[Rfam]
RNA sequence: UCUAGCAGAUAGGCUUUUUGUUCGUAAUAUGAUUCUUCUAAAAUGUAAGACGAACAAAAAGUUUGUCUGAUAGCUG
Numbered sequence: 001u002c003u004a005g006c007a008g009a010u011a012g013g014c015u016u017u018u019u020g021u022u023c024g025u026a027a028u029a030u031g032a033u034u035c036u037u038c039u040a041a042a043a044u045g046u047a048a049g050a051c052g053a054a055c056a057a058a059a060a061g062u063u064u065g066u067c068u069g070a071u072a073g074c075u076g
Base pairs, nucleotide, nucleotide: 003072004071006069008067009066011064012063013062014061015060016059017058018057020055023052024051028047029046030045031044

The record is a 76-nucleotide RNA sequence from Esox lucius, which matches "mir-208 microRNA precursor family" in Rfam. NCBI's taxonomy places the organism under Eukaryota, Gnathostomata, Neopterygii, Osteoglossocephalai, Esox.